[Rfam]
RNA sequence: UGAAUAGCUCUGGGGAGCCGCCAGGCUGAGAGGGCGCGAGGCAGGAAGCCGAGCGCCGACCCGUUGAACCUGAUCCGGAUAAUGCCGGCGCAGGGAGAUAGCGAAGAUCCGGU
Numbered sequence: 001u002g003a004a005u006a007g008c009u010c011u012g013g014g015g016a017g018c019c020g021c022c023a024g025g026c027u028g029a030g031a032g033g034g035c036g037c038g039a040g041g042c043a044g045g046a047a048g049c050c051g052a053g054c055g056c057c058g059a060c061c062c063g064u065u066g067a068a069c070c071u072g073a074u075c076c077g078g079a080u081a082a083u084g085c086c087g088g089c090g091c092a093g094g095g096a097g098a099u100a101g102c103g104a105a106g107a108u109c110c111g112g113u
Stems, first nucleotide, its partner, number of pairs: 009098002011063004017026003033057005069094004075088004
Dot-bracket structure: ........((((((..(((....)))......(((((...............)))))..)))).....((((..((((......))))..))))..))...............
The record is a 113-nucleotide RNA from Rubrobacter radiotolerans, which matches "TPP riboswitch aptamer (THI element)" in Rfam. NCBI's taxonomy places the organism under Bacteria, Bacillati, Actinomycetota, Rubrobacteraceae, Rubrobacter. Pairs were carried over by alignment from the consensus structure, which is taken from published work.